[Rfam]
RNA sequence: AUACUCAUGUAAUCGCUGCAUACUUUGUUAUGUAGAGGAAAGUCCAUGCUCACACAAACUGAGAUGUUUGUAGUGUUCGUGCUUGAUGAAUUCAUAAGUCAAGGUAGCUAUUAGUAGCUAACGGCAGGAGAAAUUCCUAAGUCAUUUGAUAUGGAAGAUUAUCCUUGAAAGUGCCACAGUGACGGAGCUGGAAUGGAAACAUUUCAGGUGGAACGAGGUAAACCCCACGAGUGAGCAACCCAAAUAUUGGUAGGGGCACCCUUUAUUAGGGAAAUGAACCGAAUAAGGGACAAGUUUAACUUGUAGAUAGAUGAUUACAACCUGCGUACGAGGCUGACCACCAUCUGAAGUACAACGGUACAGAACAUGGCUUAUCGAG
Dot-bracket structure: ...(((((((((((.((((((........))))))....[[[.[[[[[(((((((((((......)))))).....(((((((((((..........))))))(((((((....)))))).)((.((((....((((...(((....)))..)))).....)))).....(((((............((((((((....)))))))).........)))..))))))))))))))...(((...........)))...((((.(((................)))))))((((((...))))))........))))))).((...((((....................))))...)).......]]]]]]]].).)))

Shown here is a 379-nucleotide RNA sequence from Ornithinibacillus halophilus, a member of the family "Bacterial RNase P class B". Its family is annotated with tRNA processing, dimeric ribonuclease P complex and ribonuclease P activity in the Gene Ontology. The family's RNA type in Rfam is ribozyme. On this family, see Frank and Pace, Annu Rev Biochem 1998: "Ribonuclease P: unity and diversity in a tRNA processing ribozyme". From the family's description: Ribonuclease P (RNase P) is a ubiquitous endoribonuclease, found in archaea, bacteria and eukarya as well as chloroplasts and mitochondria.